RNA sequence: GGUUGAGCAAGAUUUUCUUGCUUCAAGAUUUUUGGCUUCUAGGGUGGGAAGCU
Number, nucleotide and partner (000 for none) at each position: 001g000002g000003u026004u025005g024006a022007g021008c020009a019010a018011g017012a000013u000014u000015u000016u000017c011018u010019u009020g008021c007022u006023u000024c005025a004026a003027g000028a000029u000030u000031u000032u000033u000034g053035g052036c051037u050038u049039c048040u047041a000042g000043g000044g000045u000046g000047g040048g039049a038050a037051g036052c035053u034
Na+ riboswitch aptamer (DUF1646): a 53-nucleotide sequence from Thermoanaerobacterium xylanolyticum. The literature on the family includes a 2022 paper in Nat Chem Biol by White et al., "Na(+) riboswitches regulate genes for diverse physiological processes in bacteria". Rfam's curators put it in the seed alignment. Lineage of the source: Bacteria > Clostridia > Thermoanaerobacteraceae > Thermoanaerobacterium > Thermoanaerobacterium xylanolyticum. Rfam links the family to the GO terms sodium ion binding and regulation of gene expression.